[Rfam]
Background:
A member of the RNA family "Manganese Mn2+ riboswitch aptamer (yybP-ykoY)" from Marinomonas ushuaiensis, 218 nucleotides long. Rfam describes the family as follows. This RNA was originally discovered in E. coli during a large scale screen and was named SraF. The family was later found to exist upstream of related families of protein genes in many bacteria, including the the yybP and ykoK genes in B. subtilis. A search with the family's covariance model found it, with a score of 48 bits.

RNA sequence: CGCGCCCUCUUAGGGGAGUAAUCUUCUUUGUACAUGCAAAUCUGUUACUACAACGUUUUGUACUGCAAAGAUUCUUUGUCAACAUAAUUGGGCCUCAAGCUCGUGGCAAAGAAGUUCUAGUUCGAUGACAAUCAACAGAAUUGGUGAGACUUAAGACAAUGACUUGGCUCAGGUGGGCUCAGGUAUAUUGUCUUUUGUUGUAUUGCCCACCUAGGAUU
Numbered sequence: 001c002g003c004g005c006c007c008u009c010u011u012a013g014g015g016g017a018g019u020a021a022u023c024u025u026c027u028u029u030g031u032a033c034a035u036g037c038a039a040a041u042c043u044g045u046u047a048c049u050a051c052a053a054c055g056u057u058u059u060g061u062a063c064u065g066c067a068a069a070g071a072u073u074c075u076u077u078g079u080c081a082a083c084a085u086a087a088u089u090g091g092g093c094c095u096c097a098a099g100c101u102c103g104u105g106g107c108a109a110a111g112a113a114g115u116u117c118u119a120g121u122u123c124g125a126u127g128a129c130a131a132u133c134a135a136c137a138g139a140a141u142u143g144g145u146g147a148g149a150c151u152u153a154a155g156a157c158a159a160u161g162a163c164u165u166g167g168c169u170c171a172g173g174u175g176g177g178c179u180c181a182g183g184u185a186u187a188u189u190g191u192c193u194u195u196u197g198u199u200g201u202a203u204u205g206c207c208c209a210c211c212u213a214g215g216a217u218u
Base pairs, nucleotide, nucleotide: 026070027069028068029067030066031065032064072113073112074111075110076109077108078107079106080105081104089103090102091101092100093099114217115216116215117214118213119212120211